[Rfam]
RNA sequence: AGCUUUGCGCAGUGGCAGUAUCAUAGCUAAUGAGGUUUAUCCAGAGUGCAAUUAUUGCUAAUUGAACACUUUUCCCAAUACCCCACCAUGACGACUUGAAAUGCAGUCAAUGUUGACAAUUUUUGGCAGUCUCUACAGGGA
Number, nucleotide and partner (000 for none) at each position: 001a000002g000003c000004u000005u000006u000007g000008c000009g000010c000011a000012g000013u000014g000015g000016c000017a000018g000019u000020a052021u051022c000023a000024u048025a000026g047027c046028u045029a000030a000031u000032g000033a000034g042035g041036u000037u000038u000039a000040u000041c035042c034043a000044g000045a028046g027047u026048g024049c000050a000051a021052u020053u000054a000055u000056u000057g000058c000059u000060a000061a000062u000063u000064g000065a000066a000067c000068a000069c000070u000071u000072u000073u000074c000075c000076c000077a000078a000079u000080a000081c000082c000083c000084c000085a000086c000087c115088a113089u112090g111091a000092c000093g108094a107095c106096u105097u000098g000099a000100a000101a000102u000103g000104c000105a096106g095107u094108c093109a000110a000111u090112g089113u088114u000115g087116a000117c000118a000119a000120u000121u000122u000123u000124u000125g000126g000127c000128a000129g000130u141131c140132u139133c138134u000135a000136c000137a000138g133139g132140g131141a130
Shown here is a 141-nucleotide RNA from Callithrix jacchus, a member of the family "U4 spliceosomal RNA". U4 small nuclear RNA (U4 snRNA) is a component of the major U2-dependent spliceosome. Its Rfam clan is "U4 clan". The source organism's lineage runs through Eukaryota, Opisthokonta, Primates, Cebidae and Callithrix. A search with the family's covariance model found it, with a score of 82 bits. The family's RNA type in Rfam is spliceosomal small nuclear RNA.